[Rfam]
RNA sequence: AGCUUUGCGCAGUGGCAGUAUCGUAGCCAAUGAGGUUUAUCCGAGGCGCGAUUAUUGCUAAUUGAAAACAUAUAAUCGACAUUAAGCAAAGCUUUUUAGGGUCCUCAAUUUUUCAAAAGAAUUUUUUAUU
Numbered sequence: 001a002g003c004u005u006u007g008c009g010c011a012g013u014g015g016c017a018g019u020a021u022c023g024u025a026g027c028c029a030a031u032g033a034g035g036u037u038u039a040u041c042c043g044a045g046g047c048g049c050g051a052u053u054a055u056u057g058c059u060a061a062u063u064g065a066a067a068a069c070a071u072a073u074a075a076u077c078g079a080c081a082u083u084a085a086g087c088a089a090a091g092c093u094u095u096u097u098a099g100g101g102u103c104c105u106c107a108a109u110u111u112u113u114c115a116a117a118a119g120a121a122u123u124u125u126u127u128a129u130u
Stems, first nucleotide, its partner, number of pairs: 020052005026047003034042002078106001079102002082099005088093001120130003

This 130-nucleotide sequence from Panthera leo belongs to the Rfam family "U4 spliceosomal RNA". From the family's description: U4 small nuclear RNA (U4 snRNA) is a component of the major U2-dependent spliceosome. Rfam classes the family as a spliceosomal small nuclear RNA. The family has 177 seed sequences and 32,178 matches in Rfam 15.1.